[Rfam]
The family of this 86-nucleotide sequence from Phtheirospermum japonicum is "Small nucleolar RNA snoR53Y". The family's consensus secondary structure was predicted with WAR. The match comes from Rfam's covariance-model search (54 bits). Taxonomically the source falls in Phtheirospermum (Eukaryota, Streptophytina, Embryophyta, Euphyllophyta). On this family, see Brown et al., RNA 2001: "Multiple snoRNA gene clusters from Arabidopsis".
RNA sequence: GUUCCUGAUGAUGCUUGUUACUUUAAACCAUGCUAAUUCUGACGAAUUUGUGAUUGAAAUCUGAAUAUCAGAGUUCUGAAGGGACA
Numbered sequence: 001g002u003u004c005c006u007g008a009u010g011a012u013g014c015u016u017g018u019u020a021c022u023u024u025a026a027a028c029c030a031u032g033c034u035a036a037u038u039c040u041g042a043c044g045a046a047u048u049u050g051u052g053a054u055u056g057a058a059a060u061c062u063g064a065a066u067a068u069c070a071g072a073g074u075u076c077u078g079a080a081g082g083g084a085c086a
Base pairs, nucleotide, nucleotide: 001085002084003083004082005081